The family of this 59-nucleotide RNA from Galbitalea soli is "msiK RNA".
RNA sequence: GCGCAUCGUCCAUUCACUACGGAUCGUCCGGCACGUACCUGCCGGUGAAGGAGAUAAGA
Number, nucleotide and partner (000 for none) at each position: 001g000002c000003g000004c000005a000006u000007c000008g000009u000010c051011c050012a000013u049014u048015c047016a046017c000018u000019a000020c000021g000022g000023a000024u000025c000026g000027u000028c045029c044030g043031g042032c041033a040034c000035g000036u000037a000038c000039c000040u033041g032042c031043c030044g029045g028046u016047g015048a014049a013050g011051g010052a000053g000054a000055u000056a000057a000058g000059a000

By type it is a cis-regulatory element.